The record is a 34-nucleotide sequence from Bacillus timonensis, which matches "L31-Firmicutes ribosomal protein leader" in Rfam.
The base pairs follow the family's consensus structure, which is taken from published work.
On this family, see Eckert and Weinberg, BMC Microbiol 2020: "Discovery of 20 novel ribosomal leader candidates in bacteria and archaea".
The source organism's lineage runs through Bacteria, Bacillota, Bacilli, Caryophanales and Bacillus.
RNA sequence: CUCUGUUUCGAUCAAUGAUUCAGGGCGGAAGGAG
Numbered sequence: 001c002u003c004u005g006u007u008u009c010g011a012u013c014a015a016u017g018a019u020u021c022a023g024g025g026c027g028g029a030a031g032g033a034g
Stems, first nucleotide, its partner, number of pairs: 001025005008018003